RNA sequence: UCGAAGUUUCAUCUACAACUGGAUAGAUUUUUGUCUUAGUGUAUACGAAUCGUUUGAAACAAGUAGCAAUACACCCAUGUCUUGCUUUAGCAAGACCUGGGGUCUUGUACUUUG
Numbered sequence: 001u002c003g004a005a006g007u008u009u010c011a012u013c014u015a016c017a018a019c020u021g022g023a024u025a026g027a028u029u030u031u032u033g034u035c036u037u038a039g040u041g042u043a044u045a046c047g048a049a050u051c052g053u054u055u056g057a058a059a060c061a062a063g064u065a066g067c068a069a070u071a072c073a074c075c076c077a078u079g080u081c082u083u084g085c086u087u088u089a090g091c092a093a094g095a096c097c098u099g100g101g102g103u104c105u106u107g108u109a110c111u112u113u114g
Base pairs, nucleotide, nucleotide: 008023009022010021011020060114061113062112063111066108067107068106069105071103072102075100076099077098079096080095081094082093083092